[Rfam]
RNA sequence: UUGAAAACGAAGAUGGGAACAGUACUUAAAAGACAAUCGUUUAGAGCGAGCUGGGGUUGGUGAAAGCCUGGUAACGACCUUUUAAGGAAGAUCAUCCCGGAGUUCCUUUUUGAAUGAAGUAAAAGAGGACGUUUCAUUCACGUUACGAAUGUCGAGUGGAGUGACAAAUUGAUGUUACUCAAUGAGGGUGGUACCGCGAGUUUUCUCGUCCCUAUU
Number, nucleotide and partner (000 for none) at each position: 001u000002u000003g000004a000005a000006a000007a103008c102009g000010a000011a000012g000013a000014u000015g098016g097017g096018a095019a000020c000021a000022g000023u000024a000025c086026u085027u084028a083029a082030a081031a000032g000033a000034c000035a000036a000037u000038c000039g075040u074041u073042u000043a000044g000045a000046g000047c000048g000049a000050g072051c071052u070053g069054g068055g067056g000057u000058u000059g000060g000061u000062g000063a000064a000065a000066g000067c055068c054069u053070g052071g051072u050073a041074a040075c039076g000077a000078c000079c000080u000081u030082u029083u028084a027085a026086g025087g000088a000089a000090g000091a000092u000093c000094a000095u018096c017097c016098c015099g000100g000101a000102g008103u007104u000105c128106c127107u126108u125109u124110u123111u122112g000113a000114a000115u000116g000117a000118a000119g000120u000121a000122a111123a110124a109125g108126a107127g106128g105129a000130c142131g141132u140133u000134u000135c000136a000137u000138u000139c000140a132141c131142g130143u000144u000145a000146c000147g000148a000149a000150u000151g000152u000153c000154g000155a000156g000157u000158g000159g180160a179161g178162u177163g176164a175165c174166a000167a000168a000169u000170u000171g000172a000173u000174g165175u164176u163177a162178c161179u160180c159181a000182a000183u000184g000185a213186g212187g211188g210189u000190g000191g000192u000193a000194c000195c000196g209197c208198g207199a206200g205201u000202u000203u000204u000205c200206u199207c198208g197209u196210c188211c187212c186213u185214a000215u000216u000
RNA: T-box leader
Organism: Filobacillus milosensis